[Rfam]
RNA: Makes More Granules Regulator RNA (mmgR)
Organism: Sphingobium sp. RAC03
RNA sequence: AGACUGUGCCUUUCAGGCAUCCUCUCCUAAACUUUUCAGGCUGGUCUCACGAUCAGCCUUUUUUUUGUCUUCGG
Numbered sequence: 001a002g003a004c005u006g007u008g009c010c011u012u013u014c015a016g017g018c019a020u021c022c023u024c025u026c027c028u029a030a031a032c033u034u035u036u037c038a039g040g041c042u043g044g045u046c047u048c049a050c051g052a053u054c055a056g057c058c059u060u061u062u063u064u065u066u067g068u069c070u071u072c073g074g
Stems, first nucleotide, its partner, number of pairs: 008018004038059009